[Rfam]
RNA: Small nucleolar RNA SNORA47
Organism: Pelusios castaneus
RNA sequence: UGGAGGAUUGAGAAGGUAAGGCAGUUAUAUCCUGUACUGGAUCUUACUGGUUAUAGCCUCCAAGAUUAAAAUGAUGCAAAAGCAACCCAUGUUUCCUCUCCUGAUGUGAGGGGAAACAGUAGUGCCUUUGCAUAUA
Numbered sequence: 001u002g003g004a005g006g007a008u009u010g011a012g013a014a015g016g017u018a019a020g021g022c023a024g025u026u027a028u029a030u031c032c033u034g035u036a037c038u039g040g041a042u043c044u045u046a047c048u049g050g051u052u053a054u055a056g057c058c059u060c061c062a063a064g065a066u067u068a069a070a071a072u073g074a075u076g077c078a079a080a081a082g083c084a085a086c087c088c089a090u091g092u093u094u095c096c097u098c099u100c101c102u103g104a105u106g107u108g109a110g111g112g113g114a115a116a117c118a119g120u121a122g123u124g125c126c127u128u129u130g131c132a133u134a135u136a
Stems, first nucleotide, its partner, number of pairs: 002061005015048004019042001022039004081128001082126001087122001089120002094114005101108001